The family of this 70-nucleotide RNA from Bacteroidales bacterium KHT7 is "Bacteroidetes FopS (family of paralogous sRNAs)". Rfam 15.1 lists 822 matches to the family in 178 species. The source organism's lineage runs through Bacteria, Pseudomonadati, Bacteroidota, Bacteroidia and Bacteroidales. From the family's description: The RNA-binding protein RbpB and BTncRNA_FopS sRNA are involved in the post-transcription regulation of polysaccharide utilisation loci (PUL). FopS sRNAs function as post-transcriptional repressors by binding to the vicinity of the start codon of the first mRNA of target PUL polycistrons, typically corresponding to the cognate SusC homolog, impeding translation of the respective glycan transporter. It scores 75 bits against the family's covariance model. Rfam classes the family as a small RNA.

RNA sequence: GUGUUUUUCAUGGUAUUAGAUUAAAGGUUAUUAAAGAUUGGUUGUCGGGAGGACAACCUUCUUUUUUUGC
Numbered sequence: 001g002u003g004u005u006u007u008u009c010a011u012g013g014u015a016u017u018a019g020a021u022u023a024a025a026g027g028u029u030a031u032u033a034a035a036g037a038u039u040g041g042u043u044g045u046c047g048g049g050a051g052g053a054c055a056a057c058c059u060u061c062u063u064u065u066u067u068u069g070c
Stems, first nucleotide, its partner, number of pairs: 040058007